This 67-nucleotide RNA sequence from Mizuhopecten yessoensis belongs to the Rfam family "Selenocysteine insertion sequence 1". It is annotated as a cis-regulatory element. The incorporation of selenocysteine into a protein sequence is directed by an in-frame UGA codon (usually a stop codon) within the coding region of the mRNA. Selenoprotein mRNAs contain a conserved secondary structure in the 3' UTR that is required for the distinction of UGA stop from UGA selenocysteine. The base pairs follow the family's consensus structure, which is taken from published work.

RNA sequence: GAAACAACAGUAUGACGAAAAUCUUGUAAACUUCUAUGGAAGUAAAGAUUUUCUGAUGUUUUGUAGC
Numbered sequence: 001g002a003a004a005c006a007a008c009a010g011u012a013u014g015a016c017g018a019a020a021a022u023c024u025u026g027u028a029a030a031c032u033u034c035u036a037u038g039g040a041a042g043u044a045a046a047g048a049u050u051u052u053c054u055g056a057u058g059u060u061u062u063g064u065a066g067c
Stems, first nucleotide, its partner, number of pairs: 001067001004064002017053009032041003
Rfam links the family to the GO term selenocysteine incorporation.